The record is a 63-nucleotide sequence from Eleutherodactylus coqui, which matches "Small nucleolar RNA SNORD109A" in Rfam. On this family, see Runte et al., Hum Mol Genet 2001: "The IC-SNURF-SNRPN transcript serves as a host for multiple small nucleolar RNA species and as an antisense RNA for UBE3A". Pairs were carried over by alignment from the consensus structure, which was predicted with WAR.
[Rfam]
RNA sequence: UAAUCAAGGAUGUCCAAAAAGUCUAAGGAUUCUAAGCUCAUGGUAGAUGUAAAUCUGAGAUUC
Numbered sequence: 001u002a003a004u005c006a007a008g009g010a011u012g013u014c015c016a017a018a019a020a021g022u023c024u025a026a027g028g029a030u031u032c033u034a035a036g037c038u039c040a041u042g043g044u045a046g047a048u049g050u051a052a053a054u055c056u057g058a059g060a061u062u063c
Stems, first nucleotide, its partner, number of pairs: 002062004
The organism belongs to Eleutherodactylus, within Eukaryota. Humans have two copies of the SNORD109 gene, SNORD109A and SNORD109B. By type it is a C/D-box small nucleolar RNA.